[Rfam]
Annotation: A member of the RNA family "TPP riboswitch aptamer (THI element)" from Sulfitobacter sp. EE-36, 100 nucleotides long.

RNA sequence: UAAGAUACCUCGGGGGGCCUGACAGGCUGAGAUGUGCGCGCACGGACCCGUUGAACCUGAACCGGUUAACACCGGCGGAGGGAAGGUCUGGAUACACCUC
Numbered sequence: 001u002a003a004g005a006u007a008c009c010u011c012g013g014g015g016g017g018c019c020u021g022a023c024a025g026g027c028u029g030a031g032a033u034g035u036g037c038g039c040g041c042a043c044g045g046a047c048c049c050g051u052u053g054a055a056c057c058u059g060a061a062c063c064g065g066u067u068a069a070c071a072c073c074g075g076c077g078g079a080g081g082g083a084a085g086g087u088c089u090g091g092a093u094a095c096a097c098c099u100c
Stems, first nucleotide, its partner, number of pairs: 007087004011050004017027004034043003056081003062075004

Rfam's curators write: Vitamin B(1) in its active form thiamin pyrophosphate (TPP) is an essential coenzyme that is synthesised by coupling of pyrimidine and thiazole moieties in bacteria. Lineage of the source: Bacteria > Pseudomonadati > Pseudomonadota > Roseobacteraceae > Sulfitobacter.